[Rfam]
RNA sequence: UGGCGGGGGAGCACUACAACCGGAGGAGCCUGCGGUUUAAUUGGACUCAACGCCGGACAUCUCACCAGCUCCGACUACAGUAAUGACGGCCAGGUUGAUGACCUUGCCACGAGCUGUAGAGAGGAGGUGCAUGGCCGCCGUCAGCUCGUACCGUGAGGCGUCCUGUUAAGUCAGGCAACGAGCGAGACCCACGCACCUAAUUGCCAGCAGCAGUUCCGACUGGCUGGGUACAUUAGGUGGACUGCCAGUGCCAAACUGGAGGAAGGAAUGGGCAACGGUAGGUCAGUAUGCCCCGAAUGAGCUGGGCUACACGCGGGCUACAAUGGCCGAAACAAUGGGUUGCUAUCUCGAAAGAGAACGCUAAUCUCCGAAAUUCGGUCGUAGUUCGGAUUGAGGGCUGAAACUCGCCCUCAUGAAGCUGGAUUCGGUAGUAAUCGCAUUUCAGAAGAGUGCGGUGAAUACGUCCCUGCUCCUUGCACACACCGCCCGUCAAAGCACCCGAGUGAGGUCCGGAUGAGGCUAUCGCAAGAUAGUCGAAUCUGGGCUUCGCAAGGGGGCUUAAGUCGUAACAAGGUAGCCGUAGGGGAAUCUGCGGCUGGA
Number, nucleotide and partner (000 for none) at each position: 001u480002g479003g477004c476005g475006g000007g474008g473009g472010a471011g470012c469013a468014c000015u000016a464017c463018a000019a000020c428021c427022g426023g425024a424025g321026g000027a319028g318029c317030c316031u315032g314033c313034g312035g310036u309037u000038u000039a000040a000041u056042u055043g054044g053045a000046c000047u000048c000049a000050a000051c000052g000053c044054c043055g042056g041057a000058c000059a000060u000061c000062u000063c000064a000065c305066c304067a303068g302069c301070u300071c299072c000073g000074a000075c119076u118077a117078c116079a000080g114081u113082a000083a000084u000085g000086a000087c000088g108089g107090c106091c000092a104093g103094g102095u000096u000097g000098a000099u000100g000101a000102c094103c093104u092105u000106g090107c089108c088109a000110c000111g000112a000113g081114c080115u000116g078117u077118a076119g075120a000121g000122a000123g294124g293125a000126g292127g291128u290129g289130c000131a000132u288133g287134g283135c282136c281137g279138c278139c277140g276141u000142c000143a000144g183145c182146u181147c180148g179149u178150a000151c158152c157153g000154u000155g000156a000157g152158g151159c000160g000161u000162c175163c174164u173165g172166u000167u000168a000169a000170g000171u000172c165173a164174g163175g162176c000177a000178a149179c148180g147181a146182g145183c144184g000185a000186g000187a000188c000189c271190c270191a269192c000193g000194c239195a238196c237197c236198u235199a234200a233201u000202u000203g000204c228205c227206a000207g000208c226209a225210g224211c222212a221213g220214u219215u000216c000217c000218g000219a214220c213221u212222g211223g000224c210225u209226g208227g205228g204229u000230a000231c000232a000233u200234u199235a198236g197237g196238u195239g194240g000241a000242c262243u261244g000245c259246c258247a257248g256249u255250g000251c000252c000253a000254a000255a249256c248257u247258g246259g245260a000261g243262g242263a000264a000265g000266g000267a000268a000269u191270g190271g189272g000273c000274a000275a000276c140277g139278g138279u137280a000281g136282g135283u134284c000285a000286g000287u133288a132289u129290g128291c127292c126293c124294c123295g000296a000297a000298u000299g071300a070301g069302c068303u067304g066305g065306g000307c000308u000309a036310c035311a000312c034313g033314c032315g031316g030317g029318c028319u027320a000321c025322a000323a000324u000325g380326g379327c378328c377329g376330a375331a374332a000333c000334a000335a000336u000337g368338g367339g366340u000341u000342g361343c360344u000345a000346u357347c356348u355349c354350g000351a000352a000353a000354g349355a348356g347357a346358a000359c000360g343361c342362u000363a000364a000365u000366c339367u338368c337369c000370g000371a000372a000373a000374u331375u330376c329377g328378g327379u326380c325381g000382u000383a000384g000385u000386u000387c418388g000389g000390a000391u000392u413393g412394a411395g410396g409397g408398c407399u000400g000401a000402a000403a000404c000405u000406c000407g398408c397409c396410c395411u394412c393413a392414u000415g000416a000417a000418g387419c000420u000421g000422g000423a000424u024425u023426c022427g021428g020429u000430a000431g000432u000433a000434a456435u455436c454437g453438c452439a451440u450441u449442u000443c000444a000445g000446a000447a000448g000449a441450g440451u439452g438453c437454g436455g435456u434457g000458a000459a000460u000461a000462c000463g017464u016465c000466c000467c000468u013469g012470c011471u010472c009473c008474u007475u005476g004477c003478a000479c002480a001481c000482a000483c573484c000485g570486c000487c000488c566489g565490u000491c563492a000493a560494a559495g558496c557497a000498c555499c554500c553501g000502a000503g550504u549505g548506a547507g546508g545509u544510c543511c542512g541513g540514a539515u538516g000517a000518g535519g534520c533521u532522a531523u530524c529525g000526c000527a000528a000529g524530a523531u522532a521533g520534u519535c518536g000537a000538a515539u514540c513541u512542g511543g510544g509545c508546u507547u506548c505549g504550c503551a000552a000553g500554g499555g498556g000557g496558c495559u494560u493561a000562a000563g491564u000565c489566g488567u000568a000569a000570c485571a000572a000573g483574g000575u598576a597577g596578c595579c594580g593581u592582a591583g590584g589585g000586g000587a000588a000589u584590c583591u582592g581593c580594g579595g578596c577597u576598g575599g000600a000
A member of the RNA family "Archaeal small subunit ribosomal RNA" from Halogeometricum rufum, 600 nucleotides of a longer RNA. Lineage of the source: Archaea > Methanobacteriati > Halobacteria > Halobacteriales > Halogeometricum. Its family is annotated with ribosome and structural constituent of ribosome in the Gene Ontology. Clan: SSU clan.